[Rfam]
RNA sequence: AUUAAUAUGUUGAUGCUUUAAAAUUUUUGUGACAUCUGUAAUGAAGCUUGUGAUUCAAAAUUUUUCUAUUAUAAUUAACUGAUGAC
Numbered sequence: 001a002u003u004a005a006u007a008u009g010u011u012g013a014u015g016c017u018u019u020a021a022a023a024u025u026u027u028u029g030u031g032a033c034a035u036c037u038g039u040a041a042u043g044a045a046g047c048u049u050g051u052g053a054u055u056c057a058a059a060a061u062u063u064u065u066c067u068a069u070u071a072u073a074a075u076u077a078a079c080u081g082a083u084g085a086c
Stems, first nucleotide, its partner, number of pairs: 002085002041051004
Small nucleolar RNA Me28S-Gm3255: an 86-nucleotide sequence from Drosophila erecta. It is one of the family's seed sequences. Lineage of the source: Eukaryota > Mandibulata > Pterygota > Acalyptratae > Sophophora. The literature on the family includes a 2005 paper in RNA by Huang et al., "Genome-wide analyses of two families of snoRNA genes from Drosophila melanogaster, demonstrating the extensive utilization of introns for coding of snoRNAs". The family is grouped with related families in Rfam's "SNORD60 clan".